[Rfam]
RNA sequence: GGAUCGAUGAAGAGAACAGUUGGCUGAGGACGCUCAGGGUUCCCUUGGUCU
Numbered sequence: 001g002g003a004u005c006g007a008u009g010a011a012g013a014g015a016a017c018a019g020u021u022g023g024c025u026g027a028g029g030a031c032g033c034u035c036a037g038g039g040u041u042c043c044c045u046u047g048g049u050c051u
Stems, first nucleotide, its partner, number of pairs: 001051007
RNA: Small nucleolar RNA SNORD109A
Organism: Urocitellus parryii